[Rfam]
RNA sequence: AUCCCGCGCAUAUCCGGGUCACGAUAUGCAUCCUCCCUGUCGGACUGGCCGGGCUUCGCGCCCGGCCUUUUUU
Numbered sequence: 001a002u003c004c005c006g007c008g009c010a011u012a013u014c015c016g017g018g019u020c021a022c023g024a025u026a027u028g029c030a031u032c033c034u035c036c037c038u039g040u041c042g043g044a045c046u047g048g049c050c051g052g053g054c055u056u057c058g059c060g061c062c063c064g065g066c067c068u069u070u071u072u073u
Stems, first nucleotide, its partner, number of pairs: 008029007047067008

This 73-nucleotide sequence from Ruegeria sp. TM1040 belongs to the Rfam family "Singlet oxygen resistance RNA X". The sequence is in the family's curated seed alignment. About the family: SorX (RSs2461)like SorY is a singlet oxygen induced sRNA that counteracts oxidative stress by targeting mRNA for a transporter in Rhodobacter. It also has an impact on resistance against organic hydroperoxides. The literature on the family includes a 2009 paper in Mol Microbiol by Berghoff et al., "Photooxidative stress-induced and abundant small RNAs in Rhodobacter sphaeroides". NCBI's taxonomy places the organism under Bacteria, Pseudomonadota, Alphaproteobacteria, Rhodobacterales, Ruegeria.